This 164-nucleotide RNA sequence from Pontibacillus litoralis belongs to the Rfam family "glmS glucosamine-6-phosphate activated ribozyme aptamer".
Taxonomically the source falls in Pontibacillus litoralis (Bacteria, Bacillati, Bacillota, Caryophanales).
The base pairs follow the family's consensus structure, which is taken from published work.
[Rfam]
RNA sequence: ACGCAACAUAAAGCGCCUGGACUACUUUCGAAAACAAGUAGUUGACGAGGAGGAGGUUUAUCGAUCAAGUCGGCGGAUGCCUCCCGGUUGCACACCUCAACUGCAUCGUUUUUUUCAGAAAACAAAGGGGCGACCUUUUGUACAAAGGAGAAGAACAAGGUGAC
Numbered sequence: 001a002c003g004c005a006a007c008a009u010a011a012a013g014c015g016c017c018u019g020g021a022c023u024a025c026u027u028u029c030g031a032a033a034a035c036a037a038g039u040a041g042u043u044g045a046c047g048a049g050g051a052g053g054a055g056g057u058u059u060a061u062c063g064a065u066c067a068a069g070u071c072g073g074c075g076g077a078u079g080c081c082u083c084c085c086g087g088u089u090g091c092a093c094a095c096c097u098c099a100a101c102u103g104c105a106u107c108g109u110u111u112u113u114u115u116c117a118g119a120a121a122a123c124a125a126a127g128g129g130g131c132g133a134c135c136u137u138u139u140g141u142a143c144a145a146a147g148g149a150g151a152a153g154a155a156c157a158a159g160g161u162g163a164c
Stems, first nucleotide, its partner, number of pairs: 020043008052084005061073004085103006109155007123140007